[Rfam]
RNA sequence: UCCCAGAGAAGAAACAGUCACAAGUCUUACCUCUUGUCCUAGUCCCAGAGCCUGUAAAGGAGAGCCCACUGGGACUGGCUGGGAGAGAGGAGGAAAGUUUGUUCUAAAAGGAACUGUCUGAGGGAA
Numbered sequence: 001u002c003c004c005a006g007a008g009a010a011g012a013a014a015c016a017g018u019c020a021c022a023a024g025u026c027u028u029a030c031c032u033c034u035u036g037u038c039c040u041a042g043u044c045c046c047a048g049a050g051c052c053u054g055u056a057a058a059g060g061a062g063a064g065c066c067c068a069c070u071g072g073g074a075c076u077g078g079c080u081g082g083g084a085g086a087g088a089g090g091a092g093g094a095a096a097g098u099u100u101g102u103u104c105u106a107a108a109a110g111g112a113a114c115u116g117u118c119u120g121a122g123g124g125a126a
Base pairs, nucleotide, nucleotide: 001125002124003123004122
Source information: This 126-nucleotide RNA from Equus caballus belongs to the Rfam family "Small nucleolar RNA SNORD22". By type it is a C/D-box small nucleolar RNA.